Mammalian CPEB3 ribozyme: an 81-nucleotide RNA sequence from Microcaecilia unicolor. Taxonomically the source falls in Microcaecilia (Eukaryota, Eumetazoa, Bilateria, Euteleostomi). The family has 14 seed sequences and 5,706 matches in Rfam 15.1. Gene Ontology term of the family: RNA nuclease activity.
RNA sequence: CAUGAGUCCACAGGAACCACAGCAGAAGUGUUCACACUUCCCUGGUCCCUGUCUGAUUCCUGUGAAUCUGUGAAUUCUAAU
Number, nucleotide and partner (000 for none) at each position: 001c000002a000003u000004g000005a000006g000007u000008c000009c000010a000011c000012a000013g049014g048015a000016a046017c045018c044019a000020c000021a081022g000023c000024a078025g077026a076027a075028g043029u000030g041031u000032u000033c000034a000035c000036a000037c000038u000039u000040c000041c030042c000043u028044g018045g017046u016047c000048c014049c013050u000051g000052u000053c070054u000055g068056a067057u066058u065059c064060c000061u000062g000063u000064g059065a058066a057067u056068c055069u000070g053071u000072g000073a000074a000075u027076u026077c025078u024079a000080a000081u021
A search with the family's covariance model found it, with a score of 46 bits.